[Rfam]
RNA: UnaL2 LINE 3' element
RNA sequence: AUUUUUCUCAUUUGUAAGUCGCUUUGGAUAAAAGCGUCUGCCAAGUGAAUAAAU
Numbered sequence: 001a002u003u004u005u006u007c008u009c010a011u012u013u014g015u016a017a018g019u020c021g022c023u024u025u026g027g028a029u030a031a032a033a034g035c036g037u038c039u040g041c042c043a044a045g046u047g048a049a050u051a052a053a054u
Base pairs, nucleotide, nucleotide: 013043014041015040016039020036021035022034023033024032025031